[Rfam]
RNA sequence: AUGAUGGAUUCGGAAGAGACUUUCAAGGACGAAAGCACCGAAGGGGCAGAAACUCUCAGGUAAAAGGACUGAAUCCGGACG
Numbered sequence: 001a002u003g004a005u006g007g008a009u010u011c012g013g014a015a016g017a018g019a020c021u022u023u024c025a026a027g028g029a030c031g032a033a034a035g036c037a038c039c040g041a042a043g044g045g046g047c048a049g050a051a052a053c054u055c056u057c058a059g060g061u062a063a064a065a066g067g068a069c070u071g072a073a074u075c076c077g078g079a080c081g
Base pairs, nucleotide, nucleotide: 006076007075008074009073010072011071012070013069020035021034022033023032037061038060039059040057041056044055045054046053
A member of the RNA family "Glycine riboswitch aptamer" from Sporobacter termitidis, 81 nucleotides long. Rfam's curators write: This family represents the bacterial glycine riboswitch. A search with the family's covariance model found it, with a score of 62 bits. Gene Ontology term of the family: glycine biosynthetic process.